[Rfam]
RNA sequence: CCGCGCCGGGGUGGGCAGGUCCCGCUGUCAACUAACCCUAAUGGCGGCUGCGCCCCUCACACCCGCCCGCUGUUUUACUCGCUGGCUUUCAGCGGGCAAGGGAAGCGGCCCAUAAAAGGAAGGGGGGGCGGGGGGGAAAGAGGUCCGGCCUCAAAAAAAAGCCAGCGAAGGGGAUCCGCACCCCGGCCCACCCUGGGGUCCCUGUCCCUCCCCCACAACCGGGGAUGCUCCCGCCGUCGCCCCUCGUGGAGGCCGCGGUCGGCAGGCUCAGCGCCUUUACCGCCGCGAAGAGUUCGUCUCUGUCAGCCUUGGCGGCGGCUGGGACCGGAGGGCCGGCCCGCCCACCUUGGGCAGCCGGGGGACCCCAGCAGAACAAAACGGGCGCGGCGCCACCGAGCGCUGAGCAGCCGCGGCUCCCUCAGACGUGGGAUGCGUGGCCGGCGCCGCGCCGACACCC
Numbered sequence: 001c002c003g004c005g006c007c008g009g010g011g012u013g014g015g016c017a018g019g020u021c022c023c024g025c026u027g028u029c030a031a032c033u034a035a036c037c038c039u040a041a042u043g044g045c046g047g048c049u050g051c052g053c054c055c056c057u058c059a060c061a062c063c064c065g066c067c068c069g070c071u072g073u074u075u076u077a078c079u080c081g082c083u084g085g086c087u088u089u090c091a092g093c094g095g096g097c098a099a100g101g102g103a104a105g106c107g108g109c110c111c112a113u114a115a116a117a118g119g120a121a122g123g124g125g126g127g128g129c130g131g132g133g134g135g136g137a138a139a140g141a142g143g144u145c146c147g148g149c150c151u152c153a154a155a156a157a158a159a160a161g162c163c164a165g166c167g168a169a170g171g172g173g174a175u176c177c178g179c180a181c182c183c184c185g186g187c188c189c190a191c192c193c194u195g196g197g198g199u200c201c202c203u204g205u206c207c208c209u210c211c212c213c214c215a216c217a218a219c220c221g222g223g224g225a226u227g228c229u230c231c232c233g234c235c236g237u238c239g240c241c242c243c244u245c246g247u248g249g250a251g252g253c254c255g256c257g258g259u260c261g262g263c264a265g266g267c268u269c270a271g272c273g274c275c276u277u278u279a280c281c282g283c284c285g286c287g288a289a290g291a292g293u294u295c296g297u298c299u300c301u302g303u304c305a306g307c308c309u310u311g312g313c314g315g316c317g318g319c320u321g322g323g324a325c326c327g328g329a330g331g332g333c334c335g336g337c338c339c340g341c342c343c344a345c346c347u348u349g350g351g352c353a354g355c356c357g358g359g360g361g362a363c364c365c366c367a368g369c370a371g372a373a374c375a376a377a378a379c380g381g382g383c384g385c386g387g388c389g390c391c392a393c394c395g396a397g398c399g400c401u402g403a404g405c406a407g408c409c410g411c412g413g414c415u416c417c418c419u420c421a422g423a424c425g426u427g428g429g430a431u432g433c434g435u436g437g438c439c440g441g442c443g444c445c446g447c448g449c450c451g452a453c454a455c456c457c
Stems, first nucleotide, its partner, number of pairs: 005187009016178001018176006052109003056105001065097008081166006087159003193368007230322002233319004238314004254287005260282003265275003289301004382449010408437005415430004
This 457-nucleotide sequence from Falcunculus frontatus belongs to the Rfam family "Vertebrate telomerase RNA". The family's consensus secondary structure is taken from published work. A reference for the family is Chen et al. (2000), "Secondary structure of vertebrate telomerase RNA", Cell. The match comes from Rfam's covariance-model search (142 bits). Rfam 15.1 lists 523 matches to the family in 477 species. NCBI's taxonomy places the organism under Eukaryota, Bilateria, Euteleostomi, Dipnotetrapodomorpha, Falcunculus. It is annotated as a non-coding RNA gene. The family is grouped with related families in Rfam's "Telomerase clan".